[Rfam]
RNA sequence: GAUCACGGUGAUGACCACAUAAAAUUCAAGCUCAACAGACCGGAAUGCACGGUUCCUCUCUCUUUUGAGUGGCUACUUUGCGUGUCGAUAACCCCGCAUAACUGAGUGAUC
Numbered sequence: 001g002a003u004c005a006c007g008g009u010g011a012u013g014a015c016c017a018c019a020u021a022a023a024a025u026u027c028a029a030g031c032u033c034a035a036c037a038g039a040c041c042g043g044a045a046u047g048c049a050c051g052g053u054u055c056c057u058c059u060c061u062c063u064u065u066u067g068a069g070u071g072g073c074u075a076c077u078u079u080g081c082g083u084g085u086c087g088a089u090a091a092c093c094c095c096g097c098a099u100a101a102c103u104g105a106g107u108g109a110u111c
Base pairs, nucleotide, nucleotide: 001111002110003109004108005107006106
RNA: Small nucleolar RNA Z107/R87
Organism: Cicer arietinum